Purine riboswitch aptamer: a 102-nucleotide RNA from Caldibacillus thermoamylovorans. From the family's description: Riboswitches are metabolite binding domains within certain messenger RNAs that serve as precision sensors for their corresponding targets. The base pairs follow the family's consensus structure, which is taken from published work. NCBI's taxonomy places the organism under Bacteria, Bacilli, Caryophanales, Bacillaceae, Caldibacillus.
RNA sequence: ACUUGAUAAAUUCCAUUCCUUCAUAUAUCCUCGAUAAUAUGGUUCGAGAGUCUCUACCAAACUACCGAAAAUAGUUUGACUAUGAAGGCAGUUUUCUAAUUU
Numbered sequence: 001a002c003u004u005g006a007u008a009a010a011u012u013c014c015a016u017u018c019c020u021u022c023a024u025a026u027a028u029c030c031u032c033g034a035u036a037a038u039a040u041g042g043u044u045c046g047a048g049a050g051u052c053u054c055u056a057c058c059a060a061a062c063u064a065c066c067g068a069a070a071a072u073a074g075u076u077u078g079a080c081u082a083u084g085a086a087g088g089c090a091g092u093u094u095u096c097u098a099a100u101u102u
Stems, first nucleotide, its partner, number of pairs: 018088008030048005058078007